[Rfam]
RNA sequence: GCCAAAUGAUGUCAGUCAGAUGGCAUUAGCUCUCAGGGCAAAGAUGACUUUCAUCUAUCACCCUAUGCUGAUGGCU
Numbered sequence: 001g002c003c004a005a006a007u008g009a010u011g012u013c014a015g016u017c018a019g020a021u022g023g024c025a026u027u028a029g030c031u032c033u034c035a036g037g038g039c040a041a042a043g044a045u046g047a048c049u050u051u052c053a054u055c056u057a058u059c060a061c062c063c064u065a066u067g068c069u070g071a072u073g074g075c076u
Stems, first nucleotide, its partner, number of pairs: 001075004029039004
Dot-bracket structure: ((((........................((((...))))................................)))).
The family of this 76-nucleotide RNA sequence from Elachura formosa is "Small nucleolar RNA SNORD83". The family's RNA type in Rfam is C/D-box small nucleolar RNA. The match comes from Rfam's covariance-model search (57 bits). Pairs were carried over by alignment from the consensus structure, which was predicted with PFOLD. The literature on the family includes a 2000 paper in Nucleic Acids Res by Jady and Kiss, "Characterisation of the U83 and U84 small nucleolar RNAs: two novel 2'-O-ribose methylation guide RNAs that lack complementarities to ribosomal RNAs".